Rfam assigns this 136-nucleotide RNA sequence from Chelonoidis abingdonii to the family "Small nucleolar RNA SNORA8". Taxonomically the source falls in Chelonoidis nigra species complex (Eukaryota, Chordata, Craniata, Durocryptodira). It is annotated as an H/ACA-box small nucleolar RNA. The family has 5 seed sequences and 1,490 matches in Rfam 15.1. From the family's description: ACA8 is a member of the H/ACA class of snoRNA that guide the sites of modification of uridines to pseudouridines.
RNA sequence: UGCACUGCAAGGUAUCUGCAUCCAACAGCAUUCUUCUGAUGGGAUGCUCAAAAACCAGUGCUACAGUAAUUCAGCAUUUGGCAUCGUUGGUUUUCAUGCUGCUGUGCCUGUUAAACCUGGUAUUUCUGACACAAAC
Numbered sequence: 001u002g003c004a005c006u007g008c009a010a011g012g013u014a015u016c017u018g019c020a021u022c023c024a025a026c027a028g029c030a031u032u033c034u035u036c037u038g039a040u041g042g043g044a045u046g047c048u049c050a051a052a053a054a055c056c057a058g059u060g061c062u063a064c065a066g067u068a069a070u071u072c073a074g075c076a077u078u079u080g081g082c083a084u085c086g087u088u089g090g091u092u093u094u095c096a097u098g099c100u101g102c103u104g105u106g107c108c109u110g111u112u113a114a115a116c117c118u119g120g121u122a123u124u125u126c127u128g129a130c131a132c133a134a135a136c
Base pairs, nucleotide, nucleotide: 002061003060004059005058006057007056015054017052018047019046020045021044022043023042024040026038027037028036064128065127066126068124069123070122071120072119073118074117080108081107082106083105084104